RNA: Group II catalytic intron D1-D4-2
Organism: Desulforhabdus amnigena
RNA sequence: GGGGGAUGGUCCCCCGAUGUCGGCUUGCAGGAGCAGGCAUCAAACCACCGUAAGCUGCGUCGGUUAAGAACCGGGGUGGUGAGCAUUACGGAAAAGGCGUAACAUGAUUAUGUCAGGU
Numbered sequence: 001g002g003g004g005g006a007u008g009g010u011c012c013c014c015c016g017a018u019g020u021c022g023g024c025u026u027g028c029a030g031g032a033g034c035a036g037g038c039a040u041c042a043a044a045c046c047a048c049c050g051u052a053a054g055c056u057g058c059g060u061c062g063g064u065u066a067a068g069a070a071c072c073g074g075g076g077u078g079g080u081g082a083g084c085a086u087u088a089c090g091g092a093a094a095a096g097g098c099g100u101a102a103c104a105u106g107a108u109u110a111u112g113u114c115a116g117g118u
Base pairs, nucleotide, nucleotide: 001015002014003013004012005011016041017040018039019038020037021036023034024033025032026031046117048091049090050089051088052087053086054080055079057077058076061073062072063071064070096114097113098112099111100110101109